[Rfam]
RNA sequence: GUCGCUGGGUCGCGCCAGUUUGCAACCCAAGUGGGGUCAAUAAAUGCUUUGGAUGAUGUCGAUGGGUUCUGAGGCAUGGAUCCAACGUGUAUCAUUGCUGGCCUGCCCGUUCCAAGUUAGUAGUGAAUUAGGAAAAAUCCAGUGUAGGCUCGAUUCUCCUGGUUCAUAGUGUGGAGGGCACCGGUCUAGGCUGGUUUCACAGAGCAAGCACGCCCACCCACUUUCAACGGUGGAAGGAUAACAGGCUGGUUUACACUUGAUCUGCAGUACUCCCUCAGAGCCUCCUUCUAUGAAACAAAUCAUUUU
Numbered sequence: 001g002u003c004g005c006u007g008g009g010u011c012g013c014g015c016c017a018g019u020u021u022g023c024a025a026c027c028c029a030a031g032u033g034g035g036g037u038c039a040a041u042a043a044a045u046g047c048u049u050u051g052g053a054u055g056a057u058g059u060c061g062a063u064g065g066g067u068u069c070u071g072a073g074g075c076a077u078g079g080a081u082c083c084a085a086c087g088u089g090u091a092u093c094a095u096u097g098c099u100g101g102c103c104u105g106c107c108c109g110u111u112c113c114a115a116g117u118u119a120g121u122a123g124u125g126a127a128u129u130a131g132g133a134a135a136a137a138u139c140c141a142g143u144g145u146a147g148g149c150u151c152g153a154u155u156c157u158c159c160u161g162g163u164u165c166a167u168a169g170u171g172u173g174g175a176g177g178g179c180a181c182c183g184g185u186c187u188a189g190g191c192u193g194g195u196u197u198c199a200c201a202g203a204g205c206a207a208g209c210a211c212g213c214c215c216a217c218c219c220a221c222u223u224u225c226a227a228c229g230g231u232g233g234a235a236g237g238a239u240a241a242c243a244g245g246c247u248g249g250u251u252u253a254c255a256c257u258u259g260a261u262c263u264g265c266a267g268u269a270c271u272c273c274c275u276c277a278g279a280g281c282c283u284c285c286u287u288c289u290a291u292g293a294a295a296c297a298a299a300u301c302a303u304u305u306u
Stems, first nucleotide, its partner, number of pairs: 001038001003036001004019005026035003042305005048299004054293001057290002061285001064282002067280008076271001078263005084257001089254003094250001098249008107237002110235005116228003120224001122222003125165008134157001136155004141150003173218002176215003184209002191202003
Dot-bracket structure: (.((((((......)))))......(((....)))).)...(((((.((((..(..((..(..((.((((((((.(.(((((.(....(((..(...((((((((.((.(((((.(((.(.(((((((((((.(.((((.(((....))).)))).))))))))).......((.(((.....((.....(((......))).....))...))).)).))).).)))..)))))))....))))))))).)))..).))))).......).))))))))))..)...))..)..)))).))))).
RNA: Plant signal recognition particle RNA
Organism: Zingiber officinale